[Rfam]
RNA sequence: CCCGCAACGGGACGGAAAGACCCCGUGAACCUUUACUGCAACUUCACAUUGGUUCCGGGUAAGUGAUGUGUAGGAUAGGACGGAGGCAUUGAAGCGGGUUCGCCAGGAUUCGUGGAGCCAUCCUUGAAAUACGUCCCUUUGCUUGCCUGGGGCCUAAUCCCGGCGUACGUCGGGAGACAGUGUGUGGUGGGUAGUUUGACUGGGGUGGUCGCCUCCAAAAGAGUAACGGAGGCUUCUAAAGGUGCGCUCAUGGCGAUUGGUAACCGCCAGCAGAGCAUAAUGGUAUAAGCGCGCUUGACUGUGAGACCCACAAGUCGAUCAGGUAGGAAACUAGGGCAUAGUGAUCCGGUGGUUCCGCAUGGAAGGGCCAUCGCUCAAAGGAUAAAAGGUACUCCGGGGAUAACAGGCUGAUCGCUCCCAAGAGCUCAUAUCGACGGAGCGGUUUGGCACCUCGAUGUCGGCUCGUCACAUCCUGGGGCUGGAGAAGGUCCCAAGGGUUGGGCUGUUCGCCCAUUAAAGUGGCACGCGAGCUGGGUUCAGAACGUCGUGAGACAGUUCGGUCCCUAUCUGUUGUGGGCGUA
Numbered sequence: 001c002c003c004g005c006a007a008c009g010g011g012a013c014g015g016a017a018a019g020a021c022c023c024c025g026u027g028a029a030c031c032u033u034u035a036c037u038g039c040a041a042c043u044u045c046a047c048a049u050u051g052g053u054u055c056c057g058g059g060u061a062a063g064u065g066a067u068g069u070g071u072a073g074g075a076u077a078g079g080a081c082g083g084a085g086g087c088a089u090u091g092a093a094g095c096g097g098g099u100u101c102g103c104c105a106g107g108a109u110u111c112g113u114g115g116a117g118c119c120a121u122c123c124u125u126g127a128a129a130u131a132c133g134u135c136c137c138u139u140u141g142c143u144u145g146c147c148u149g150g151g152g153c154c155u156a157a158u159c160c161c162g163g164c165g166u167a168c169g170u171c172g173g174g175a176g177a178c179a180g181u182g183u184g185u186g187g188u189g190g191g192u193a194g195u196u197u198g199a200c201u202g203g204g205g206u207g208g209u210c211g212c213c214u215c216c217a218a219a220a221g222a223g224u225a226a227c228g229g230a231g232g233c234u235u236c237u238a239a240a241g242g243u244g245c246g247c248u249c250a251u252g253g254c255g256a257u258u259g260g261u262a263a264c265c266g267c268c269a270g271c272a273g274a275g276c277a278u279a280a281u282g283g284u285a286u287a288a289g290c291g292c293g294c295u296u297g298a299c300u301g302u303g304a305g306a307c308c309c310a311c312a313a314g315u316c317g318a319u320c321a322g323g324u325a326g327g328a329a330a331c332u333a334g335g336g337c338a339u340a341g342u343g344a345u346c347c348g349g350u351g352g353u354u355c356c357g358c359a360u361g362g363a364a365g366g367g368c369c370a371u372c373g374c375u376c377a378a379a380g381g382a383u384a385a386a387a388g389g390u391a392c393u394c395c396g397g398g399g400a401u402a403a404c405a406g407g408c409u410g411a412u413c414g415c416u417c418c419c420a421a422g423a424g425c426u427c428a429u430a431u432c433g434a435c436g437g438a439g440c441g442g443u444u445u446g447g448c449a450c451c452u453c454g455a456u457g458u459c460g461g462c463u464c465g466u467c468a469c470a471u472c473c474u475g476g477g478g479c480u481g482g483a484g485a486a487g488g489u490c491c492c493a494a495g496g497g498u499u500g501g502g503c504u505g506u507u508c509g510c511c512c513a514u515u516a517a518a519g520u521g522g523c524a525c526g527c528g529a530g531c532u533g534g535g536u537u538c539a540g541a542a543c544g545u546c547g548u549g550a551g552a553c554a555g556u557u558c559g560g561u562c563c564c565u566a567u568c569u570g571u572u573g574u575g576g577g578c579g580u581a
Base pairs, nucleotide, nucleotide: 001577002576003575004574005573006572007571008570010569011568012567014564015563022398023397024396025395027394028393029390030389031388032387033386035195036194037193038192042187043186045184046183047182048181051154052153053152054151055150056149057148058147059146060145061144062143063142064141065140066139068137078136079135080134081133082132085119086118087117094113095112096111097110098109099108100107101106158175159174160173161172162171163170164169198210199209200208201207211233212232213231214230215229216228234379236336237335242294243293244292245291246290247289248274249273251269252268253267254266255265275284276283299322300321301320305316306315307314324333325332326331347373348372349371350370351369352368353367355366356365407448408447409446411445412442413441414440415439416438417437418436422432423431459534460532461531462530463529464526465523466522467521468520469519472497473496475492476491477490478489479488480487499513500512501511502510503509540558541557542556543555544553545552546551
The family of this 581-nucleotide part of an RNA from Prolixibacter sp. SD074 is "Bacterial large subunit ribosomal RNA".